[Rfam]
A member of the RNA family "Eukaryotic small subunit ribosomal RNA" from Cavenderia deminutiva, 597 nucleotides of a longer RNA. Lineage of the source: Eukaryota > Amoebozoa > Evosea > Eumycetozoa > Cavenderia. Rfam links the family to the GO terms ribosome and structural constituent of ribosome.
RNA sequence: AGUCAUAUGCUUGUCUCAAGGAUUAAGCCAUGCAUGUCUAAGUAUAAGUCCUUGUACGACUAGACUGCAGACGGCUCAUUACAACAGUUGUUGUCUACAGGACAUCCGCGCUUUUGCGUUUUGGAUAACCGCAGUAAAUCGGGGCUAAUACAUAUAAACGAAGGAAUGACUGGUAACGGAAGUUUCUGCGAUGGAUUUAGCUAUUCAACCGGCCUUGUGUUUGUUGGAACCGAUCCAUAUUGCUAAUCGGCUAUUAGUUUACUAAUAGCCUGAUGAGUUCUAUGAACAACUGCCCUAUCAACUUGAUGGUAAGGUAUUGGCUUACCAUGGUUGUAACGGGUAACGGGGAAUCAGGGUUCGAUUCCGGAGAGGACGCCUGAGAAACGGCGUCCACAUCUACGGGUGGCAGCAGGCGCGUAAAUUACCCAAUCUCAAUAGAGAGGAGGUGGCGACAAUAAAUCCUGAUGCCUAUAGGCUCACGCCUAGGGCAAUUAGAAUAAGUACAAAAUAAAUCCAUUAACCAAUGUAAUUGGAGGGCAAGUCUGGUGCCAGCAGCCGCGGUAAUUCCAGCUCCAAUAGCGUAUACUAAUGUUGUUG
Numbered sequence: 001a002g003u004c005a006u007a008u009g010c011u012u013g014u015c016u017c018a019a020g021g022a023u024u025a026a027g028c029c030a031u032g033c034a035u036g037u038c039u040a041a042g043u044a045u046a047a048g049u050c051c052u053u054g055u056a057c058g059a060c061u062a063g064a065c066u067g068c069a070g071a072c073g074g075c076u077c078a079u080u081a082c083a084a085c086a087g088u089u090g091u092u093g094u095c096u097a098c099a100g101g102a103c104a105u106c107c108g109c110g111c112u113u114u115u116g117c118g119u120u121u122u123g124g125a126u127a128a129c130c131g132c133a134g135u136a137a138a139u140c141g142g143g144g145c146u147a148a149u150a151c152a153u154a155u156a157a158a159c160g161a162a163g164g165a166a167u168g169a170c171u172g173g174u175a176a177c178g179g180a181a182g183u184u185u186c187u188g189c190g191a192u193g194g195a196u197u198u199a200g201c202u203a204u205u206c207a208a209c210c211g212g213c214c215u216u217g218u219g220u221u222u223g224u225u226g227g228a229a230c231c232g233a234u235c236c237a238u239a240u241u242g243c244u245a246a247u248c249g250g251c252u253a254u255u256a257g258u259u260u261a262c263u264a265a266u267a268g269c270c271u272g273a274u275g276a277g278u279u280c281u282a283u284g285a286a287c288a289a290c291u292g293c294c295c296u297a298u299c300a301a302c303u304u305g306a307u308g309g310u311a312a313g314g315u316a317u318u319g320g321c322u323u324a325c326c327a328u329g330g331u332u333g334u335a336a337c338g339g340g341u342a343a344c345g346g347g348g349a350a351u352c353a354g355g356g357u358u359c360g361a362u363u364c365c366g367g368a369g370a371g372g373a374c375g376c377c378u379g380a381g382a383a384a385c386g387g388c389g390u391c392c393a394c395a396u397c398u399a400c401g402g403g404u405g406g407c408a409g410c411a412g413g414c415g416c417g418u419a420a421a422u423u424a425c426c427c428a429a430u431c432u433c434a435a436u437a438g439a440g441a442g443g444a445g446g447u448g449g450c451g452a453c454a455a456u457a458a459a460u461c462c463u464g465a466u467g468c469c470u471a472u473a474g475g476c477u478c479a480c481g482c483c484u485a486g487g488g489c490a491a492u493u494a495g496a497a498u499a500a501g502u503a504c505a506a507a508a509u510a511a512a513u514c515c516a517u518u519a520a521c522c523a524a525u526g527u528a529a530u531u532g533g534a535g536g537g538c539a540a541g542u543c544u545g546g547u548g549c550c551a552g553c554a555g556c557c558g559c560g561g562u563a564a565u566u567c568c569a570g571c572u573c574c575a576a577u578a579g580c581g582u583a584u585a586c587u588a589a590u591g592u593u594g595u596u597g
Stems, first nucleotide, its partner, number of pairs: 001587003005584007014457001016455001020450001021416001027414003031411003036068002041066003048060002075369003085292003090287002094285002100280004120154001122152002129144002132141001134140001162187005170179001192237006206226004212221001214219001247273004253266004294340003301331003306328008344366004348359004371392006394405004422448001424447003430443004463494003466490005472485005501521002503518001505517001530576006543570004552559002

A reference for the family is Yusupov et al. (2001), "Crystal structure of the ribosome at 5.5 A resolution", Science.